Notes
Shown here is an 80-nucleotide RNA sequence from Petromyzon marinus, a member of the family "mir-203 microRNA precursor family".
[Rfam]
Nucleotides: 080
Base pairs, nucleotide, nucleotide: 014071015070016069017068018067019066021064022063024061026059027058029056030055031054032053
Number, partner (000 for none) and nucleotide at each position: 001000g002000c003000u004000u005000c006000c007000c008000g009000g010000g011000c012000c013000c014071a015070g016069u017068g018067g019066u020000u021064c022063u023000c024061a025000u026059c027058a028000g029056u030055u031054c032053a033000a034000c035000a036000g037000u038000u039000c040000u041000u042000u043000g044000g045000a046000g047000a048000a049000a050000u051000u052000g053032u054031g055030a056029a057000a058027u059026g060000u061024u062000u063022a064021g065000g066019a067018c068017c069016a070015c071014u072000g073000g074000g075000a076000c077000c078000g079000g080000a
The sequence is in the family's curated seed alignment. For this family Rfam cites "Vertebrate microRNA genes" (Lim et al., Science, 2003). Its family is annotated with RISC complex and miRNA-mediated post-transcriptional gene silencing in the Gene Ontology. The family has 32 seed sequences and 1,049 matches in Rfam 15.1.